Shown here is a 136-nucleotide RNA from Phytobacter massiliensis, a member of the family "opuB ncRNA motif". opuB ncRNA motif was reported as a strong cis regulatory motif candidate, with potential to be a cis regulatory riboswitch type, it have been identified in mostly from species of Enterobacteriaceae. The motif have been recognised mostly downstream-adjacent gene, opuB, annotated as coding for a proline/glycine ABC-transporter, whereas other related genes are known to be relevant to the transport of compatible solutes such as glycine, betaine, and choline of an uncharacterized ABC transporter with strong homology to amino acid transporters. A reference for the family is Narunsky et al. (2024), "The discovery of novel noncoding RNAs in 50 bacterial genomes", Nucleic Acids Res.
RNA sequence: UUAAAAGCCCUCUCUAUUACUGGAAGCAUCUCCAGGUCGUUGCUAUUGCUUAAAUACCCUGCCGAACAUGGCCUAAUAACCUGCAACCGCCGUUGCCAUAACGCAUGCACUCAGGGAGACACACUGCAAUGCAUAC
Numbered sequence: 001u002u003a004a005a006a007g008c009c010c011u012c013u014c015u016a017u018u019a020c021u022g023g024a025a026g027c028a029u030c031u032c033c034a035g036g037u038c039g040u041u042g043c044u045a046u047u048g049c050u051u052a053a054a055u056a057c058c059c060u061g062c063c064g065a066a067c068a069u070g071g072c073c074u075a076a077u078a079a080c081c082u083g084c085a086a087c088c089g090c091c092g093u094u095g096c097c098a099u100a101a102c103g104c105a106u107g108c109a110c111u112c113a114g115g116g117a118g119a120c121a122c123a124c125u126g127c128a129a130u131g132c133a134u135a136c
Stems, first nucleotide, its partner, number of pairs: 013116001017115002022032002037109001041105003061072004083096005